[Rfam]
RNA sequence: AAAUUGAUGGCCAUAACGGUCAGGGCGAACUGUUGCCUGAAGAAAGGUAA
Numbered sequence: 001a002a003a004u005u006g007a008u009g010g011c012c013a014u015a016a017c018g019g020u021c022a023g024g025g026c027g028a029a030c031u032g033u034u035g036c037c038u039g040a041a042g043a044a045a046g047g048u049a050a
Base pairs, nucleotide, nucleotide: 009021010020011019012018
This 50-nucleotide RNA from Escherichia coli belongs to the Rfam family "algC RNA". Taxonomically the source falls in Escherichia coli (Bacteria, Pseudomonadota, Gammaproteobacteria, Enterobacterales). The sequence is in the family's curated seed alignment.